[Rfam]
RNA sequence: UUCUUAUCCAGAGAGGUUUAGGGUCUGGCCCGAUGACACCUCAGCAACCUUCACGCUAGGUUAUUUCAGUGAAAAGGUGCUAAUUCCAGCAAGUUCUUUAAAAACUUGGAAGAUAAGGA
Numbered sequence: 001u002u003c004u005u006a007u008c009c010a011g012a013g014a015g016g017u018u019u020a021g022g023g024u025c026u027g028g029c030c031c032g033a034u035g036a037c038a039c040c041u042c043a044g045c046a047a048c049c050u051u052c053a054c055g056c057u058a059g060g061u062u063a064u065u066u067c068a069g070u071g072a073a074a075a076g077g078u079g080c081u082a083a084u085u086c087c088a089g090c091a092a093g094u095u096c097u098u099u100a101a102a103a104a105c106u107u108g109g110a111a112g113a114u115a116a117g118g119a
Base pairs, nucleotide, nucleotide: 001119002118003117004116005115006114007113008112013042014041015040016039017038021031022030023029025089026088027087028086043081044080045079046078048077049076050073051072052071053070085111090108091107092106093105094104095103
Rfam assigns this 119-nucleotide sequence from Peribacillus saganii to the family "SAM riboswitch aptamer (S box leader)". The base pairs follow the family's consensus structure, which is taken from published work. Its family is annotated with regulation of gene expression in the Gene Ontology.